A member of the RNA family "Small nucleolar RNA snoR97" from Oryza sativa, 105 nucleotides long.
Rfam links the family to the GO terms nucleolus and RNA processing.
NCBI's taxonomy places the organism under Eukaryota, Poaceae, Oryzinae, Oryza, Oryza sativa.
By type it is an H/ACA-box small nucleolar RNA.

RNA sequence: AGUUUCUGAUUUGCCGGGAGGCUGAAAAAGCUCGGAGAUUGUGUGUUGACAUCAGCUUCGUCUCUAUUAACCGUGGGAUGGGAGUUAAAUGACAGCACGAAAUUC
Number, nucleotide and partner (000 for none) at each position: 001a000002g000003u000004u000005u000006c000007u000008g000009a000010u000011u000012u000013g000014c000015c000016g000017g000018g000019a000020g000021g000022c000023u000024g000025a000026a000027a000028a000029a000030g000031c000032u000033c000034g000035g000036a000037g000038a000039u000040u000041g000042u099043g098044u097045g096046u095047u094048g093049a000050c000051a000052u000053c000054a086055g085056c084057u083058u082059c081060g000061u078062c077063u076064c075065u000066a000067u000068u000069a000070a000071c000072c000073g000074u000075g064076g063077g062078a061079u000080g000081g059082g058083a057084g056085u055086u054087a000088a000089a000090u000091g000092a000093c048094a047095g046096c045097a044098c043099g042100a000101a000102a000103u000104u000105c000